Background: A member of the RNA family "Nuclear RNase P" from Nezara viridula, 276 nucleotides long. Rfam 15.1 lists 3,848 matches to the family in 1,862 species. The source organism's lineage runs through Eukaryota, Insecta, Euheteroptera, Panheteroptera and Nezara.
RNA sequence: CCAGACUGAAACCGUAAUCCAGGGGAAUACUAACGGAGUAGAUCCUUACUCAAUUUUCCCCGGGAAGGUCUGAGUCCAGAGCCAAUAAACCUUCUAGCAGGAGGGCACCCUUAACAGGGGCGCAGGGAAAUAGAAAAAGCAGGACCACAAGCUUUUUGAGUGGGUUAGCUCACUUGUGGACCCUGGUGGAAAAGCCCUGUGGCUGGAGAUUUGAGUGAAAUGAUUACGGCACUGCUUUAUUCAGUGUAACUCAAUUCAGACUAUUCUUCGGGCUGG
Numbered sequence: 001c002c003a004g005a006c007u008g009a010a011a012c013c014g015u016a017a018u019c020c021a022g023g024g025g026a027a028u029a030c031u032a033a034c035g036g037a038g039u040a041g042a043u044c045c046u047u048a049c050u051c052a053a054u055u056u057u058c059c060c061c062g063g064g065a066a067g068g069u070c071u072g073a074g075u076c077c078a079g080a081g082c083c084a085a086u087a088a089a090c091c092u093u094c095u096a097g098c099a100g101g102a103g104g105g106c107a108c109c110c111u112u113a114a115c116a117g118g119g120g121c122g123c124a125g126g127g128a129a130a131u132a133g134a135a136a137a138a139g140c141a142g143g144a145c146c147a148c149a150a151g152c153u154u155u156u157u158g159a160g161u162g163g164g165u166u167a168g169c170u171c172a173c174u175u176g177u178g179g180a181c182c183c184u185g186g187u188g189g190a191a192a193a194g195c196c197c198u199g200u201g202g203c204u205g206g207a208g209a210u211u212u213g214a215g216u217g218a219a220a221u222g223a224u225u226a227c228g229g230c231a232c233u234g235c236u237u238u239a240u241u242c243a244g245u246g247u248a249a250c251u252c253a254a255u256u257c258a259g260a261c262u263a264u265u266c267u268u269c270g271g272g273c274u275g276g
Stems, first nucleotide, its partner, number of pairs: 001276004008269003013228007022061005036051006070259005080204004090104005105121002108119004122200006140185003229247006
Dot-bracket structure: ((((...(((..(((((((..(((((.........((((((....)))))).....)))))........[[[[[.....((((......(((((.....)))))((.((((....))))))((((((............(((........................................))).........)))))))))).................)))))))((((((.......)))))).......]]]]].......)))...))))